[Rfam]
RNA sequence: AUCUUUAUGCAGGGGCAUUACAUGUUUCAAUGAGGAUUCGUCCGAGAUCAUGUUUUUGCUGGUUGAAAACUAUAACCUGACAGCUCCUCUGGCGUCGUUCGCGGCGCCCUAGGGAAUUUUUGGACACCCCCCAUUACUGG
Numbered sequence: 001a002u003c004u005u006u007a008u009g010c011a012g013g014g015g016c017a018u019u020a021c022a023u024g025u026u027u028c029a030a031u032g033a034g035g036a037u038u039c040g041u042c043c044g045a046g047a048u049c050a051u052g053u054u055u056u057u058g059c060u061g062g063u064u065g066a067a068a069a070c071u072a073u074a075a076c077c078u079g080a081c082a083g084c085u086c087c088u089c090u091g092g093c094g095u096c097g098u099u100c101g102c103g104g105c106g107c108c109c110u111a112g113g114g115a116a117u118u119u120u121u122g123g124a125c126a127c128c129c130c131c132c133a134u135u136a137c138u139g140g
Stems, first nucleotide, its partner, number of pairs: 020053005027047002034043003085114004091108007129140002
This 140-nucleotide RNA from Australozyma monospora belongs to the Rfam family "U4 spliceosomal RNA". The base pairs follow the family's consensus structure, which is taken from published work. By type it is a spliceosomal small nuclear RNA. The family is grouped with related families in Rfam's "U4 clan".